[Rfam]
RNA sequence: AACAUUGCUCUGACACAAGCACUGACUUGAGUUAAAGUAGUAAGUGCUAAUUGUUGGGGUAAUGCCA
Numbered sequence: 001a002a003c004a005u006u007g008c009u010c011u012g013a014c015a016c017a018a019g020c021a022c023u024g025a026c027u028u029g030a031g032u033u034a035a036a037g038u039a040g041u042a043a044g045u046g047c048u049a050a051u052u053g054u055u056g057g058g059g060u061a062a063u064g065c066c067a
Stems, first nucleotide, its partner, number of pairs: 004063008013054003018048006025041003